[Rfam]
RNA sequence: GGACAGCACUCUGGAGAGAGUCCCCACAGGCCAGGCCUGUCGCGGGACCGCCGAAGGUGCACACCGGCCCCCCGCCACGCGGGCGACGGAAAACUCUCAGGCAAAAGGACAGAGGGGCGUGA
Dot-bracket structure: ......(.(((((......((((.....................)))).(((((..(.(....(.......................).....).))).))).......))))).)......
Numbered sequence: 001g002g003a004c005a006g007c008a009c010u011c012u013g014g015a016g017a018g019a020g021u022c023c024c025c026a027c028a029g030g031c032c033a034g035g036c037c038u039g040u041c042g043c044g045g046g047a048c049c050g051c052c053g054a055a056g057g058u059g060c061a062c063a064c065c066g067g068c069c070c071c072c073c074g075c076c077a078c079g080c081g082g083g084c085g086a087c088g089g090a091a092a093a094c095u096c097u098c099a100g101g102c103a104a105a106a107g108g109a110c111a112g113a114g115g116g117g118c119g120u121g122a
Stems, first nucleotide, its partner, number of pairs: 007116001009114005020048004050102003053098002057096001059094001064088001
The family of this 122-nucleotide RNA from Pigmentiphaga aceris is "Glycine riboswitch aptamer". Rfam links the family to the GO term glycine biosynthetic process. Taxonomically the source falls in Pigmentiphaga (Bacteria, Pseudomonadati, Betaproteobacteria, Burkholderiales). A search with the family's covariance model found it, with a score of 54 bits.